[Rfam]
RNA: mir-1822 microRNA precursor family
Organism: Caenorhabditis brenneri
RNA sequence: AGUUUAUCCAGGAAAGCUAUCGGACUGACGUUUGGUACCGAGCUGCCCUGGGAUAGACUCU
Number, nucleotide and partner (000 for none) at each position: 001a059002g058003u057004u056005u055006a054007u053008c052009c051010a049011g048012g047013a000014a000015a044016g043017c042018u000019a000020u041021c040022g039023g038024a036025c035026u000027g000028a000029c000030g000031u000032u000033u000034g000035g025036u024037a000038c023039c022040g021041a020042g017043c016044u015045g000046c000047c012048c011049u010050g000051g009052g008053a007054u006055a005056g004057a003058c002059u001060c000061u000